[Rfam]
RNA sequence: UCGCAUCACCGGAAAGGACGGACACCCGGCACCGCCCUUUCCACCGGAGGCCCCGACCACCCGUCGGGGCCUCUUUUUUUC
Numbered sequence: 001u002c003g004c005a006u007c008a009c010c011g012g013a014a015a016g017g018a019c020g021g022a023c024a025c026c027c028g029g030c031a032c033c034g035c036c037c038u039u040u041c042c043a044c045c046g047g048a049g050g051c052c053c054c055g056a057c058c059a060c061c062c063g064u065c066g067g068g069g070c071c072u073c074u075u076u077u078u079u080u081c
Stems, first nucleotide, its partner, number of pairs: 011042007048072008058063001